[Rfam]
RNA sequence: AGAUGAGGUAGAGGUGCAAGCAAAAAGAGUCGCACAUGUGAGGAUGACAACAAUGAUCAUGUGUAAAAGGUUUGUUUGCCGAAGUAUGUAUAUUAGUUGAAAGUAUACGUACUGGUAUUACCUUGAACAAGGGUAAUACUGUCAUAGAGCUAAUUGUCUCUAUGGAGAGCUACUGAUCGU
Numbered sequence: 001a002g003a004u005g006a007g008g009u010a011g012a013g014g015u016g017c018a019a020g021c022a023a024a025a026a027g028a029g030u031c032g033c034a035c036a037u038g039u040g041a042g043g044a045u046g047a048c049a050a051c052a053a054u055g056a057u058c059a060u061g062u063g064u065a066a067a068a069g070g071u072u073u074g075u076u077u078g079c080c081g082a083a084g085u086a087u088g089u090a091u092a093u094u095a096g097u098u099g100a101a102a103g104u105a106u107a108c109g110u111a112c113u114g115g116u117a118u119u120a121c122c123u124u125g126a127a128c129a130a131g132g133g134u135a136a137u138a139c140u141g142u143c144a145u146a147g148a149g150c151u152a153a154u155u156g157u158c159u160c161u162a163u164g165g166a167g168a169g170c171u172a173c174u175g176a177u178c179g180u
Base pairs, nucleotide, nucleotide: 007174008173009172010171011170016079017078018077019076020075021074022073023072024071032064033063034062035061036060037059038058083113084112085111086110087109088108089107090106091105092104093103094102114140115139116138117137118136119135120134121133122132123131124130142165143164144163145162146161147160148159
Dot-bracket structure: ......(((((....(((((((((.......(((((((...................)))))))......)))))))))...((((((((((((.......))))))))))))(((((((((((.....))))))))))).(((((((..........)))))))....)))))......

Source information: This 180-nucleotide RNA sequence from Bacillus salinus belongs to the Rfam family "Lysine riboswitch aptamer". It scores 132 bits against the family's covariance model. Rfam links the family to the GO term lysine biosynthetic process. The source organism's lineage runs through Bacteria, Bacillota, Bacilli, Caryophanales and Bacillus.